[Rfam]
Shown here is a 120-nucleotide sequence from Glycine soja, a member of the family "MIR1520 microRNA precursor family". The family has 18 seed sequences and 1,934 matches in Rfam 15.1. Its family is annotated with RISC complex and miRNA-mediated post-transcriptional gene silencing in the Gene Ontology. It scores 74 bits against the family's covariance model.

RNA sequence: UUUUUAUUAGACAAUGACUAUCAUGUCACGUGUCAUGUUUUGAUUGGUCAAUAAAAAUAAUGCAUUUCAUCUUUCAUGAAGUUGACAUCCAAUCAAAACAACACAUAACAAUUAUCAUUC
Dot-bracket structure: ........................((.(.((....(.((((.(((((.........................................))))).)))).)..)).).))...........
Numbered sequence: 001u002u003u004u005u006a007u008u009a010g011a012c013a014a015u016g017a018c019u020a021u022c023a024u025g026u027c028a029c030g031u032g033u034c035a036u037g038u039u040u041u042g043a044u045u046g047g048u049c050a051a052u053a054a055a056a057a058u059a060a061u062g063c064a065u066u067u068c069a070u071c072u073u074u075c076a077u078g079a080a081g082u083u084g085a086c087a088u089c090c091a092a093u094c095a096a097a098a099c100a101a102c103a104c105a106u107a108a109c110a111a112u113u114a115u116c117a118u119u120c
Stems, first nucleotide, its partner, number of pairs: 025109002028106001030104002036100001038098004043093005